This 69-nucleotide RNA sequence from Helianthus annuus belongs to the Rfam family "Small nucleolar RNA U49". Gene Ontology terms of the family: nucleolus and RNA processing. Clan: SNORD49 clan. By type it is a C/D-box small nucleolar RNA. A search with the family's covariance model found it, with a score of 56 bits.
[Rfam]
RNA sequence: UUCCGAUGAGGUAGACAUCCCCAAUAAGUAUAGGAAGUGCCGUAUGACACUUUAAACCGCACCGGAUCA
Numbered sequence: 001u002u003c004c005g006a007u008g009a010g011g012u013a014g015a016c017a018u019c020c021c022c023a024a025u026a027a028g029u030a031u032a033g034g035a036a037g038u039g040c041c042g043u044a045u046g047a048c049a050c051u052u053u054a055a056a057c058c059g060c061a062c063c064g065g066a067u068c069a
Stems, first nucleotide, its partner, number of pairs: 014063001034053006